[Rfam]
RNA sequence: AAUUAUCUUCAGGGCAGGGUGAGCAUUUUGCAACUCCCGACCGGCGGUAAAAGUCCGCGAAGACCUUUGGUCUUGAUUUGGUGAAAUUCCAAAACCGACAGUAUAGUCUGGAUGGAAGAAGAGGAAA
Numbered sequence: 001a002a003u004u005a006u007c008u009u010c011a012g013g014g015c016a017g018g019g020u021g022a023g024c025a026u027u028u029u030g031c032a033a034c035u036c037c038c039g040a041c042c043g044g045c046g047g048u049a050a051a052a053g054u055c056c057g058c059g060a061a062g063a064c065c066u067u068u069g070g071u072c073u074u075g076a077u078u079u080g081g082u083g084a085a086a087u088u089c090c091a092a093a094a095c096c097g098a099c100a101g102u103a104u105a106g107u108c109u110g111g112a113u114g115g116a117a118g119a120a121g122a123g124g125a126a127a
Stems, first nucleotide, its partner, number of pairs: 003125002006122005017038003040107002042097002044058004053095002061073003077093005099110003
RNA: FMN riboswitch aptamer (RFN element)